[Rfam]
The record is a 119-nucleotide RNA from Anoxynatronum buryatiense, which matches "Molybdenum/Tungsten riboswitch aptamer (Moco RNA motif)" in Rfam. The literature on the family includes a 2008 paper in Mol Microbiol by Regulski et al., "in molybdenum cofactor and tungsten cofactor metabolism". The family's consensus secondary structure is taken from published work.

RNA sequence: UUCAUAGAAUGACUCCGAGCUAGAAAACCUACAACACAAGUCAUGGUUUUCUAGCCUGUAGGGUAUUGCUGGAAACGGCAGUGCCUCCCAGUGUGGAAAGGAGGAAAUGGCUGAGGCGU
Numbered sequence: 001u002u003c004a005u006a007g008a009a010u011g012a013c014u015c016c017g018a019g020c021u022a023g024a025a026a027a028c029c030u031a032c033a034a035c036a037c038a039a040g041u042c043a044u045g046g047u048u049u050u051c052u053a054g055c056c057u058g059u060a061g062g063g064u065a066u067u068g069c070u071g072g073a074a075a076c077g078g079c080a081g082u083g084c085c086u087c088c089c090a091g092u093g094u095g096g097a098a099a100g101g102a103g104g105a106a107a108u109g110g111c112u113g114a115g116g117c118g119u
Stems, first nucleotide, its partner, number of pairs: 003113002013103004019055011034041002061086011087096002